Rfam assigns this 91-nucleotide RNA from Enterobacter sp. 638 to the family "Selenocysteine transfer RNA".
A reference for the family is Mizutani and Goto (2000), "Eukaryotic selenocysteine tRNA has the 9/4 secondary structure", FEBS Lett.
Lineage of the source: Bacteria > Pseudomonadati > Pseudomonadota > Gammaproteobacteria > Enterobacter.
It is one of the family's seed sequences.

RNA sequence: GGAAGAUCGUCAUCUCCGGUGAGGUGGCUGGAUUUCAAAUCCAGUUGGGGACGCCAGCGUUCCCGGGCAGGUUCGACUCCUGUGAUCUUCC
Numbered sequence: 001g002g003a004a005g006a007u008c009g010u011c012a013u014c015u016c017c018g019g020u021g022a023g024g025u026g027g028c029u030g031g032a033u034u035u036c037a038a039a040u041c042c043a044g045u046u047g048g049g050g051a052c053g054c055c056a057g058c059g060u061u062c063c064c065g066g067g068c069a070g071g072u073u074c075g076a077c078u079c080c081u082g083u084g085a086u087c088u089u090c091c
Base pairs, nucleotide, nucleotide: 001091002090003089004088005087006086007085008084009083011026012025013024014023015022016021027045028044029043030042031041032040047064048063049062050061051060068082069081070080071079